[Rfam]
RNA sequence: CCGGGACAGCUUGAGUUGAUUUGCACGCUUUACCGAGCUGCAGGUCAAAUUACUGUCCCUAAAGCCUAGAGAGUGCAAGAACGAGAGAAGCGUUACUUGCUGUGACGUUUAUACUGUUGCACUCCCACAUUU
Dot-bracket structure: ..(((((((......(((((((((.((......)).))...)))))))....)))))))...........((.(((..........................................))).))........
RNA: Caenorhabditis snoRNA ceN59